A member of the RNA family "Retroviral 3'UTR stability element" from Callipepla squamata, 289 nucleotides long. By type it is a cis-regulatory element. Gene Ontology term of the family: regulation of RNA stability.
RNA sequence: UAGCGCUAAUACACUUAGUUGAAAAAGAAUUGCAGCUUGGCCAUAUAGAACCUUCGCUUAGCUGCUGGAAUACCCCUAUCUUCGUGAUCCGGAAGGCAUCCGGGUCCUAUCGCCUACUACAUGACUUACGCGCUGUCAACGCUAAACUUAUCACUUUCGGUGCUGUUCAGCAGGGAGCGCCGAUCCUCUCUGCGCUCCCUCGCGGCUGGCCUCUGAUGGUCCUGGAUCUUAAGGACUGUUUCUUCUCCAUUCCCCUUGCGGAGCAGGACCGUGAGGCCUUUGCGUUCAC
Numbered sequence: 001u002a003g004c005g006c007u008a009a010u011a012c013a014c015u016u017a018g019u020u021g022a023a024a025a026a027g028a029a030u031u032g033c034a035g036c037u038u039g040g041c042c043a044u045a046u047a048g049a050a051c052c053u054u055c056g057c058u059u060a061g062c063u064g065c066u067g068g069a070a071u072a073c074c075c076c077u078a079u080c081u082u083c084g085u086g087a088u089c090c091g092g093a094a095g096g097c098a099u100c101c102g103g104g105u106c107c108u109a110u111c112g113c114c115u116a117c118u119a120c121a122u123g124a125c126u127u128a129c130g131c132g133c134u135g136u137c138a139a140c141g142c143u144a145a146a147c148u149u150a151u152c153a154c155u156u157u158c159g160g161u162g163c164u165g166u167u168c169a170g171c172a173g174g175g176a177g178c179g180c181c182g183a184u185c186c187u188c189u190c191u192g193c194g195c196u197c198c199c200u201c202g203c204g205g206c207u208g209g210c211c212u213c214u215g216a217u218g219g220u221c222c223u224g225g226a227u228c229u230u231a232a233g234g235a236c237u238g239u240u241u242c243u244u245c246u247c248c249a250u251u252c253c254c255c256u257u258g259c260g261g262a263g264c265a266g267g268a269c270c271g272u273g274a275g276g277c278c279u280u281u282g283c284g285u286u287c288a289c
Base pairs, nucleotide, nucleotide: 013118018113019112021110051068052067055064056063086106087105088104089103090102091101092100141272142271147267148266149265151263159213160212162210163209164208165207167205168204173199174198175197176196177195178194179193180192182189215251216250217249218248219247